This 123-nucleotide RNA sequence from Mycoplasma leachii belongs to the Rfam family "Mycoplasma sRNA MCS4". It is annotated as a small RNA. Taxonomically the source falls in Mycoplasma leachii (Bacteria, Bacillati, Mycoplasmatales, Mycoplasmataceae). For this family Rfam cites "Probing the secondary structure of MCS4 RNA of Mycoplasma capricolum" (Ushida et al., J Biochem, 1997). The base pairs follow the family's consensus structure, which is taken from published work.

RNA sequence: UAUAAAUAUCUUGUAUAUUUAUAAGAUUGGCAGUGUGGUUCUUGCUGGACCUGGGUGAUAAUAGAUCCCGAAAGACGGAGAUUGAACCAAAAAACAACUCUUAUAAAAAGAGUUGUUUUUUUU
Numbered sequence: 001u002a003u004a005a006a007u008a009u010c011u012u013g014u015a016u017a018u019u020u021a022u023a024a025g026a027u028u029g030g031c032a033g034u035g036u037g038g039u040u041c042u043u044g045c046u047g048g049a050c051c052u053g054g055g056u057g058a059u060a061a062u063a064g065a066u067c068c069c070g071a072a073a074g075a076c077g078g079a080g081a082u083u084g085a086a087c088c089a090a091a092a093a094a095c096a097a098c099u100c101u102u103a104u105a106a107a108a109a110g111a112g113u114u115g116u117u118u119u120u121u122u123u
Base pairs, nucleotide, nucleotide: 001023002022003021004020005019006018007017008016009015037088038087039086040085041084052070053069054068055067089120090119091118092117093116095115096114097113098112099111100110101109102108